[Rfam]
Nucleotides: 119
Base pairs, nucleotide, nucleotide: 001079002078003077004076009038011037012036013035014034015033016032021030022029039066040065041064044062045061046060048057049056082108084106085105086104087103088102089101090100091099
Number, partner (000 for none) and nucleotide at each position: 001079g002078g003077u004076c005000a006000u007000g008000a009038g010000u011037u012036c013035c014034a015033g016032u017000a018000a019000c020000a021030a022029g023000c024000c025000c026000c027000g028000g029022c030021u031000u032016a033015c034014u035013g036012g037011a038009c039066g040065g041064c042000a043000a044062c045061c046060c047000u048057c049056c050000a051000a052000c053000c054000g055000c056049g057048g058000u059000g060046g061045g062044g063000u064041g065040c066039c067000c068000c069000g070000g071000g072000u073000g074000a075000a076004g077003a078002c079001c080000u081000g082108g083000c084106u085105c086104a087103a088102c089101a090100c091099g092000c093000a094000c095000a096000a097000g098000g099091c100090g101089u102088g103087u104086u105085g106084a107000a108082c109000a110000a111000g112000c113000g114000c115000g116000g117000g118000u119000u